[Rfam]
RNA sequence: ACAAUUGAAUUACUCCGAAGCUGGGUAACCUAAAGCAUAGGCAAUGGUGACCAGACAAGUGUCAUUAGGCACUCGGGUAUUAUGGGAAACUGUAAUAUCUCCUGCUGGAAAGGAGUCUGUCGACAGGUGGA
Numbered sequence: 001a002c003a004a005u006u007g008a009a010u011u012a013c014u015c016c017g018a019a020g021c022u023g024g025g026u027a028a029c030c031u032a033a034a035g036c037a038u039a040g041g042c043a044a045u046g047g048u049g050a051c052c053a054g055a056c057a058a059g060u061g062u063c064a065u066u067a068g069g070c071a072c073u074c075g076g077g078u079a080u081u082a083u084g085g086g087a088a089a090c091u092g093u094a095a096u097a098u099c100u101c102c103u104g105c106u107g108g109a110a111a112g113g114a115g116u117c118u119g120u121c122g123a124c125a126g127g128u129g130g131a
Base pairs, nucleotide, nucleotide: 006122012116013115014114015113016112020056022054024052025051026050028048029047030046035042036041059072060071061070062069063068075100076099077098078097079096080095081094082093083092084091085090101108102107
Description: A member of the RNA family "Molybdenum/Tungsten riboswitch aptamer (Moco RNA motif)" from Desulfosporosinus sp. HMP52, 131 nucleotides long. The match comes from Rfam's covariance-model search (46 bits).